[Rfam]
RNA: TPP riboswitch aptamer (THI element)
Organism: Anaerotruncus colihominis
RNA sequence: AAGGGAAAACAGGGGAGCCAAAAGGCUGAGAAUGAGUGCACCGCAUUCUAAACCCUCGAACCUGAUACGGGUAAUGCCGGCGUAGGAAGCAUAUCGACACGAUUU
Numbered sequence: 001a002a003g004g005g006a007a008a009a010c011a012g013g014g015g016a017g018c019c020a021a022a023a024g025g026c027u028g029a030g031a032a033u034g035a036g037u038g039c040a041c042c043g044c045a046u047u048c049u050a051a052a053c054c055c056u057c058g059a060a061c062c063u064g065a066u067a068c069g070g071g072u073a074a075u076g077c078c079g080g081c082g083u084a085g086g087a088a089g090c091a092u093a094u095c096g097a098c099a100c101g102a103u104u105u
Stems, first nucleotide, its partner, number of pairs: 007092001010089001011056004017026003034048006061086004068079003